[Rfam]
RNA sequence: GGGGGCGGUGAGGCACGUGAUCACCAGAAAGAACCCUGGAAGAGAACUCUCCCCACCCACCCUCCCGCCAACCCGUCACUCCUACGGGUGACUUGGGCGCGGCAGCGGGCCGGGUGGGGGUACGCUCGCCGCAAACAACCCCCAUAAACGCAGACGGCCCCCGGCGGGAUUGCACUCCCGGCCGAGGGCCUGACCACCUAGGAAGUCAGACCUUCCCG
Numbered sequence: 001g002g003g004g005g006c007g008g009u010g011a012g013g014c015a016c017g018u019g020a021u022c023a024c025c026a027g028a029a030a031g032a033a034c035c036c037u038g039g040a041a042g043a044g045a046a047c048u049c050u051c052c053c054c055a056c057c058c059a060c061c062c063u064c065c066c067g068c069c070a071a072c073c074c075g076u077c078a079c080u081c082c083u084a085c086g087g088g089u090g091a092c093u094u095g096g097g098c099g100c101g102g103c104a105g106c107g108g109g110c111c112g113g114g115u116g117g118g119g120g121u122a123c124g125c126u127c128g129c130c131g132c133a134a135a136c137a138a139c140c141c142c143c144a145u146a147a148a149c150g151c152a153g154a155c156g157g158c159c160c161c162c163g164g165c166g167g168g169a170u171u172g173c174a175c176u177c178c179c180g181g182c183c184g185a186g187g188g189c190c191u192g193a194c195c196a197c198c199u200a201g202g203a204a205g206u207c208a209g210a211c212c213u214u215c216c217c218g
Stems, first nucleotide, its partner, number of pairs: 007198004017068003076091006096130004156190005162184003166179004201216005
RNA: Streptomyces sRNA 4677
Organism: Kitasatospora atroaurantiaca